About this RNA:
UnaL2 LINE 3' element: a 54-nucleotide RNA from Liparis tanakae. Rfam 15.1 lists 493,311 matches to the family in 99 species. Pairs were carried over by alignment from the consensus structure, which is taken from published work. Rfam classes the family as a cis-regulatory element.
RNA sequence: AACAUUAAACAUUGUAAGUCGCUUUGGAUAAAAGAAUCUGCUAAAUGACAUGUA
Numbered sequence: 001a002a003c004a005u006u007a008a009a010c011a012u013u014g015u016a017a018g019u020c021g022c023u024u025u026g027g028a029u030a031a032a033a034g035a036a037u038c039u040g041c042u043a044a045a046u047g048a049c050a051u052g053u054a
Stems, first nucleotide, its partner, number of pairs: 013043001014041003022034004